The record is a 289-nucleotide RNA from Pieris brassicae, which matches "Arthropod 7SK RNA" in Rfam.
Lineage of the source: Eukaryota > Amphiesmenoptera > Neolepidoptera > Pierinae > Pieris.
A reference for the family is Gruber et al. (2008), "Arthropod 7SK RNA", Mol Biol Evol.
RNA sequence: GGAAGUGUAUUCUUUAGUGUGAUGCCACUGCCUGUCCAGAGGUCACUAGCUCUUGUUGGUAGAUCUUCAGAACGUGACGUCACGCGCUCGUUGUCAGGCUACGCUUCUUGUAACGUGCGCUGCGAACGCUCGCCCGGUAGACGGCUGCGACGUCACAGCGGCGCACUUUCCUUGGGCAGCCUUCUAAACCACGCGGUUUUAAUCAAAUCGUUAGCUUAGCUCCGGUUAAAUCUUGAACACUUCCAUAAUGAGGCGGCGAGAACGAAACUCUCGGAUGCCCGUUUUUUGA
Numbered sequence: 001g002g003a004a005g006u007g008u009a010u011u012c013u014u015u016a017g018u019g020u021g022a023u024g025c026c027a028c029u030g031c032c033u034g035u036c037c038a039g040a041g042g043u044c045a046c047u048a049g050c051u052c053u054u055g056u057u058g059g060u061a062g063a064u065c066u067u068c069a070g071a072a073c074g075u076g077a078c079g080u081c082a083c084g085c086g087c088u089c090g091u092u093g094u095c096a097g098g099c100u101a102c103g104c105u106u107c108u109u110g111u112a113a114c115g116u117g118c119g120c121u122g123c124g125a126a127c128g129c130u131c132g133c134c135c136g137g138u139a140g141a142c143g144g145c146u147g148c149g150a151c152g153u154c155a156c157a158g159c160g161g162c163g164c165a166c167u168u169u170c171c172u173u174g175g176g177c178a179g180c181c182u183u184c185u186a187a188a189c190c191a192c193g194c195g196g197u198u199u200u201a202a203u204c205a206a207a208u209c210g211u212u213a214g215c216u217u218a219g220c221u222c223c224g225g226u227u228a229a230a231u232c233u234u235g236a237a238c239a240c241u242u243c244c245a246u247a248a249u250g251a252g253g254c255g256g257c258g259a260g261a262a263c264g265a266a267a268c269u270c271u272c273g274g275a276u277g278c279c280c281g282u283u284u285u286u287u288g289a
Stems, first nucleotide, its partner, number of pairs: 001244008019083005032070003038066001041065004045060004252279003

The base pairs follow the family's consensus structure, which is taken from published work. The match comes from Rfam's covariance-model search (50 bits).